RNA sequence: GAAAAUAAAGGAGCAAUAACCCCUCUUGAUAGAACAAGAAAGAGUUUAUUGCUCCUU
Numbered sequence: 001g002a003a004a005a006u007a008a009a010g011g012a013g014c015a016a017u018a019a020c021c022c023c024u025c026u027u028g029a030u031a032g033a034a035c036a037a038g039a040a041a042g043a044g045u046u047u048a049u050u051g052c053u054c055c056u057u
Base pairs, nucleotide, nucleotide: 008057009056010055011054012053013052014051015050016049017048018047024039025038026037027036028035